[Rfam]
RNA sequence: AGUGAGGAUAGAGGCGCAAAGACCAUUAGUACAUAGUUUGAGGAUGAUGAGAUCCUGUGAAAGUUGUGGAAAGGGGAAUUUGCCGAAGCGGAUAGAGUCUCAUUCAUCUUGACGCUGGUUCUGUAUUGAAGAAAUCCAGAACUGUCAUAUAGGUAACUAUAUGGAGGGCUAUCUCACGC
Numbered sequence: 001a002g003u004g005a006g007g008a009u010a011g012a013g014g015c016g017c018a019a020a021g022a023c024c025a026u027u028a029g030u031a032c033a034u035a036g037u038u039u040g041a042g043g044a045u046g047a048u049g050a051g052a053u054c055c056u057g058u059g060a061a062a063g064u065u066g067u068g069g070a071a072a073g074g075g076g077a078a079u080u081u082g083c084c085g086a087a088g089c090g091g092a093u094a095g096a097g098u099c100u101c102a103u104u105c106a107u108c109u110u111g112a113c114g115c116u117g118g119u120u121c122u123g124u125a126u127u128g129a130a131g132a133a134a135u136c137c138a139g140a141a142c143u144g145u146c147a148u149a150u151a152g153g154u155a156a157c158u159a160u161a162u163g164g165a166g167g168g169c170u171a172u173c174u175c176a177c178g179c
Stems, first nucleotide, its partner, number of pairs: 006174006016083005023076002032068008087116004094109003117143007125135003145164007
Lysine riboswitch aptamer: a 179-nucleotide RNA from Bacillus sp. MRMR6. Its family is annotated with lysine biosynthetic process in the Gene Ontology. A search with the family's covariance model found it, with a score of 118 bits. Taxonomically the source falls in Bacillus (Bacteria, Bacillati, Bacillota, Caryophanales). The base pairs follow the family's consensus structure, which is taken from published work.